[Rfam]
RNA: skipping-rope RNA
RNA sequence: GUCUUUCGAGGUGAAAAUUGCGUCCUCACGCGCCGCGUGCUGUCUGCAACGGGCAAAAGAGAUACCGGGGGUGACGCGCCGGUCGAAAGAG
Numbered sequence: 001g002u003c004u005u006u007c008g009a010g011g012u013g014a015a016a017a018u019u020g021c022g023u024c025c026u027c028a029c030g031c032g033c034c035g036c037g038u039g040c041u042g043u044c045u046g047c048a049a050c051g052g053g054c055a056a057a058a059g060a061g062a063u064a065c066c067g068g069g070g071g072u073g074a075c076g077c078g079c080c081g082g083u084c085g086a087a088a089g090a091g
Stems, first nucleotide, its partner, number of pairs: 002090007011029004020077005031059001032054003064083005